This 283-nucleotide RNA from Botryotinia convoluta belongs to the Rfam family "Fungal signal recognition particle RNA".
Lineage of the source: Eukaryota > Opisthokonta > Fungi > Sclerotiniaceae > Botryotinia.
It is annotated as a non-coding RNA gene.
Rfam links the family to the GO terms signal recognition particle, endoplasmic reticulum targeting, signal recognition particle, plasma membrane targeting and SRP-dependent cotranslational protein targeting to membrane, signal sequence recognition.
For this family Rfam cites "Crystal structure of the ribonucleoprotein core of the signal recognition particle" (Batey et al., Science, 2000).
Nucleotides: 283
Base pairs, nucleotide, nucleotide: 002014003013004012018281019280020279021278022277024275025274035272037270039268044262045261046260047259050257051256052255053254054253055252056251057250058249062079063078064077065076066075067074068073083247084246085245086243087242088241089240090239091237092236093235095230096229098227099226100224101223102222104219105218107216108215109214110213111212112211114155116153117152118151119150120149121144124142125141126140127139128138130137131136156160164210165209166208167207168206169205174203175202176201177200178199183194184193185192
Number, partner (000 for none) and nucleotide at each position: 001000c002014g003013a004012c005000u006000g007000u008000g009000a010000c011000g012004g013003u014002c015000a016000u017000a018281a019280g020279g021278u022277u023000a024275a025274g026000g027000c028000g029000a030000g031000c032000u033000c034000a035272c036000g037270u038000u039268a040000c041000c042000u043000c044262u045261u046260c047259c048000u049000u050257c051256u052255c053254u054253c055252c056251a057250a058249a059000u060000u061000c062079u063078u064077c065076g066075a067074u068073c069000u070000a071000a072000c073068g074067a075066u076065u077064g078063g079062a080000g081000g082000c083247c084246a085245c086243c087242a088241a089240c090239a091237g092236u093235g094000c095230c096229c097000a098227g099226u100224c101223c102222g103000a104219a105218c106000a107216c108215c109214a110213c111212g112211g113000u114155g115000a116153u117152a118151a119150u120149c121144c122000a123000c124142u125141c126140g127139u128138g129000u130137a131136g132000g133000a134000a135000a136131c137130u138128c139127a140126c141125g142124a143000u144121g145000c146000u147000g148000c149120g150119g151118u152117u153116g154000u155114c156160c157000u158000a159000a160156g161000c162000a163000a164210u165209g166208a167207a168206g169205a170000u171000g172000a173000u174203u175202u176201c177200u178199u179000g180000a181000g182000g183194g184193a185192g186000g187000u188000u189000u190000c191000a192185c193184u194183c195000u196000g197000c198000a199178g200177a201176g202175a203174g204000c205169u206168c207167u208166u209165c210164a211112c212111c213110g214109u215108g216107g217000g218105g219104u220000g221000g222102c223101g224100g225000u226099g227098c228000a229096g230095g231000a232000u233000u234000a235093c236092a237091u238000u239090u240089g241088u242087u243086g244000u245085g246084u247083g248000g249058u250057u251056u252055g253054g254053a255052g256051g257050g258000u259047g260046g261045a262044a263000g264000a265000g266000g267000c268039u269000u270037g271000g272035g273000u274025u275024u276000c277022a278021a279020c280019u281018u282000u283000u